The record is a 129-nucleotide sequence from Brevibacillus sp. SYP-B805, which matches "SAM riboswitch aptamer (S box leader)" in Rfam. Gene Ontology term of the family: regulation of gene expression. The SAM riboswitch is found upstream of a number of genes which code for proteins involved in methionine or cysteine biosynthesis in Gram-positive bacteria. Lineage of the source: Bacteria > Bacillati > Bacillota > Paenibacillaceae > Brevibacillus.
RNA sequence: CUCUUAUCGCGAGAUGGCUGAGGGACUGGCCCGAUGAUGCCCGGCAACCGGCGUGAUCCGAUACGGAUGACGAAACGGUGCUAAAUCCUGCAGCGAUCACUUGACGGGUGGUUGGCUGAGAGAUGAGAG
Numbered sequence: 001c002u003c004u005u006a007u008c009g010c011g012a013g014a015u016g017g018c019u020g021a022g023g024g025a026c027u028g029g030c031c032c033g034a035u036g037a038u039g040c041c042c043g044g045c046a047a048c049c050g051g052c053g054u055g056a057u058c059c060g061a062u063a064c065g066g067a068u069g070a071c072g073a074a075a076c077g078g079u080g081c082u083a084a085a086u087c088c089u090g091c092a093g094c095g096a097u098c099a100c101u102u103g104a105c106g107g108g109u110g111g112u113u114g115g116c117u118g119a120g121a122g123a124u125g126a127g128a129g
Base pairs, nucleotide, nucleotide: 001129002128003127004126005125006124007123008122013042016041017040018039022032023031024030026090028088029087043082044081045080046079048078049077052072053071086121091118092117093116094115096113